[Rfam]
RNA sequence: GCAGUUGUGGCCGAGUGGUUAAGGCGAUAGACUCGAAAUCUAUUGGGGUUUCCCCGCGUAGGUUCGAAUCCUACCAACUGCG
Numbered sequence: 001g002c003a004g005u006u007g008u009g010g011c012c013g014a015g016u017g018g019u020u021a022a023g024g025c026g027a028u029a030g031a032c033u034c035g036a037a038a039u040c041u042a043u044u045g046g047g048g049u050u051u052c053c054c055c056g057c058g059u060a061g062g063u064u065c066g067a068a069u070c071c072u073a074c075c076a077a078c079u080g081c082g
Base pairs, nucleotide, nucleotide: 001081002080003079004078005077006076007075010025011024012023027043028042029041030040031039058074059073060072061071062070
Background
tRNA: an 82-nucleotide RNA sequence from Medioppia subpectinata. The organism belongs to Medioppia, within Eukaryota. Pairs were carried over by alignment from the consensus structure, which is taken from published work. Rfam classes the family as a transfer RNA. The match comes from Rfam's covariance-model search (67 bits).